[Rfam]
RNA sequence: GUAGAAGUAUGGUGUGCAGCCUUUCAUUGUGUUUAGGCUCCUAAAGUAUUUCUCUUACGUGCAGUUAUUGGCUUUUCAGGGCCAAAUUUAUGGUUAACGGCUACUUGGAA
Number, nucleotide and partner (000 for none) at each position: 001g000002u000003a053004g052005a051006a050007g049008u048009a047010u000011g000012g000013u000014g000015u000016g000017c000018a039019g038020c037021c036022u035023u000024u000025c000026a000027u000028u000029g000030u000031g000032u000033u000034u000035a022036g021037g020038c019039u018040c000041c000042u000043a000044a000045a000046g000047u009048a008049u007050u006051u005052c004053u003054c000055u000056u000057a000058c000059g000060u000061g000062c000063a000064g000065u000066u000067a000068u085069u084070g083071g082072c081073u080074u079075u000076u000077c000078a000079g074080g073081g072082c071083c070084a069085a068086a000087u000088u000089u000090a000091u000092g000093g000094u000095u000096a000097a000098c000099g000100g000101c000102u000103a000104c000105u000106u000107g000108g000109a000110a000

Rfam assigns this 110-nucleotide RNA sequence from Poseidonibacter parvus to the family "purD RNA motif". The family's RNA type in Rfam is cis-regulatory element. On this family, see Weinberg et al., Nucleic Acids Res 2007: "Identification of 22 candidate structured RNAs in bacteria using the CMfinder comparative genomics pipeline".